Rfam assigns this 107-nucleotide sequence from Porphyromonas gingivicanis to the family "Bacteroidales small SRP". The family is grouped with related families in Rfam's "SRP clan". Pairs were carried over by alignment from the consensus structure, which is taken from published work. The organism belongs to Porphyromonas, within Bacteria. The family's RNA type in Rfam is non-coding RNA gene.

RNA sequence: UGCACUUGGGUGAGUCCUACACGACCAGCUCCCUGUGAAUCCCCCAGGGCUUGAUCGCAGCAAGGGUAGUAGGUCGUAGCGGUGCGAUGUAGGUUGCUCACCUGUAU
Numbered sequence: 001u002g003c004a005c006u007u008g009g010g011u012g013a014g015u016c017c018u019a020c021a022c023g024a025c026c027a028g029c030u031c032c033c034u035g036u037g038a039a040u041c042c043c044c045c046a047g048g049g050c051u052u053g054a055u056c057g058c059a060g061c062a063a064g065g066g067u068a069g070u071a072g073g074u075c076g077u078a079g080c081g082g083u084g085c086g087a088u089g090u091a092g093g094u095u096g097c098u099c100a101c102c103u104g105u106a107u
Base pairs, nucleotide, nucleotide: 008103009102010101011100012099013098014097015096017092018091019090020089021088022086023085024083025082